[Rfam]
RNA sequence: AACCUAAUGGGCUAUCUCUCCCCAGUUCUUCCCGGAGUCGGGAAAAGCUGUGUUGAGAGGGCGAUUAAAAAAAAAC
Dot-bracket structure: ..............((((..(.(((...((((((....))))))...))).)..))))..................
Numbered sequence: 001a002a003c004c005u006a007a008u009g010g011g012c013u014a015u016c017u018c019u020c021c022c023c024a025g026u027u028c029u030u031c032c033c034g035g036a037g038u039c040g041g042g043a044a045a046a047g048c049u050g051u052g053u054u055g056a057g058a059g060g061g062c063g064a065u066u067a068a069a070a071a072a073a074a075a076c
Stems, first nucleotide, its partner, number of pairs: 015058004021052001023050003029044006